[Rfam]
RNA: L13-Bacteroidia ribosomal protein leader
RNA sequence: GGGGAGAGGCUUAGAAUCCCCGUGAGCUGGAGUGUGAAUAGCGGUGUCUUUGGCCAGGCGUAGCGGUUCGUGAAUC
Numbered sequence: 001g002g003g004g005a006g007a008g009g010c011u012u013a014g015a016a017u018c019c020c021c022g023u024g025a026g027c028u029g030g031a032g033u034g035u036g037a038a039u040a041g042c043g044g045u046g047u048c049u050u051u052g053g054c055c056a057g058g059c060g061u062a063g064c065g066g067u068u069c070g071u072g073a074a075u076c
Stems, first nucleotide, its partner, number of pairs: 001021005035070005041064002044061006